[Rfam]
Background
Shown here is a 149-nucleotide RNA sequence from Allomesorhizobium alhagi, a member of the family "speF leader". Rfam's curators write: This family is a putative regulatory RNA structure that is found upstream of the speF gene encoding ornithine decarboxylase in Agrobacterium tumefaciens and other alpha-proteobacteria. The literature on the family includes a 2005 paper in Genome Biol by Corbino et al., "Evidence for a second class of S-adenosylmethionine riboswitches and other regulatory RNA motifs in alpha-proteobacteria".
RNA sequence: UUCCGGUUGUCCAAAGACCGGGGUUACUGAAGAGGCACACCUUCAUUGCCGGCAGUGCGGAACGGGUCUCCCAAUCCAAGCCAAGGCAGACAAAGCGAACCAAGGCCGGGCAAGGCCAAGGUUCACCGCCGCGAGACGGCGCUUCAUGG
Numbered sequence: 001u002u003c004c005g006g007u008u009g010u011c012c013a014a015a016g017a018c019c020g021g022g023g024u025u026a027c028u029g030a031a032g033a034g035g036c037a038c039a040c041c042u043u044c045a046u047u048g049c050c051g052g053c054a055g056u057g058c059g060g061a062a063c064g065g066g067u068c069u070c071c072c073a074a075u076c077c078a079a080g081c082c083a084a085g086g087c088a089g090a091c092a093a094a095g096c097g098a099a100c101c102a103a104g105g106c107c108g109g110g111c112a113a114g115g116c117c118a119a120g121g122u123u124c125a126c127c128g129c130c131g132c133g134a135g136a137c138g139g140c141g142c143u144u145c146a147u148g149g
Base pairs, nucleotide, nucleotide: 001023002022003021004020005019006018007017008016034050035049036048037047057129058128059127081089100110101109